Annotation:
Rfam assigns this 87-nucleotide RNA sequence from Aquilegia coerulea to the family "MIR535 microRNA precursor family". The family's consensus secondary structure was predicted with RNAalifold. The sequence is in the family's curated seed alignment. Lineage of the source: Eukaryota > Viridiplantae > Mesangiospermae > Ranunculales > Aquilegia. A reference for the family is Zeng et al. (2010), "Conservation and divergence of microRNAs and their functions in Euphorbiaceous plants", Nucleic Acids Res.

RNA sequence: UGACAACGAGAGAGAGCACGCGAGUCGGCAUUCAUGCAGAGGAUAUAUAAAUGACUGUCUACAUGCGUGCUUUCUCUCGUUGUCAUA
Numbered sequence: 001u002g003a004c005a006a007c008g009a010g011a012g013a014g015a016g017c018a019c020g021c022g023a024g025u026c027g028g029c030a031u032u033c034a035u036g037c038a039g040a041g042g043a044u045a046u047a048u049a050a051a052u053g054a055c056u057g058u059c060u061a062c063a064u065g066c067g068u069g070c071u072u073u074c075u076c077u078c079g080u081u082g083u084c085a086u087a
Base pairs, nucleotide, nucleotide: 001085002084003083004082005081007079008078011075012074014072016070017069018068019067020066021065022064024062025061